[Rfam]
RNA sequence: CGAUUUAUACUAGAUUCCAUUCGUAUAACCUCGCAGGCAGAUGCAAGACACAGGGCGAGGGUUUCUACAGGAGCCUUAACUUCCUAACUACGAAGCCAGGAGACAAGCUU
Number, nucleotide and partner (000 for none) at each position: 001c000002g000003a000004u000005u000006u000007a000008u000009a000010c000011u000012a000013g000014a000015u000016u000017c000018c000019a000020u094021u093022c092023g091024u090025a089026u000027a000028a000029c060030c059031u058032c057033g056034c055035a000036g000037g000038c000039a000040g000041a000042u000043g000044c000045a000046a000047g000048a000049c000050a000051c000052a000053g000054g000055g034056c033057g032058a031059g030060g029061g000062u000063u000064u000065c000066u000067a000068c000069a085070g084071g083072a082073g081074c000075c000076u000077u000078a000079a000080c000081u073082u072083c071084c070085u069086a000087a000088c000089u025090a024091c023092g022093a021094a020095g000096c000097c000098a000099g000100g000101a000102g000103a000104c000105a000106a000107g000108c000109u000110u000